Rfam assigns this 102-nucleotide RNA from Terrilactibacillus tamarindi to the family "Purine riboswitch aptamer". Pairs were carried over by alignment from the consensus structure, which is taken from published work. It scores 86 bits against the family's covariance model.
RNA sequence: UGUAAAAAAAUUAUAGCUACUCGUAUAAUUGCAGGAAUACGGCCUGCAAGUUUCUACCAAAUGACCGAAAAACAUUCGACUACGAGUGAGAUUGCAUAUGUA
Numbered sequence: 001u002g003u004a005a006a007a008a009a010a011u012u013a014u015a016g017c018u019a020c021u022c023g024u025a026u027a028a029u030u031g032c033a034g035g036a037a038u039a040c041g042g043c044c045u046g047c048a049a050g051u052u053u054c055u056a057c058c059a060a061a062u063g064a065c066c067g068a069a070a071a072a073c074a075u076u077c078g079a080c081u082a083c084g085a086g087u088g089a090g091a092u093u094g095c096a097u098a099u100g101u102a
Stems, first nucleotide, its partner, number of pairs: 018088008029049007058078001060076004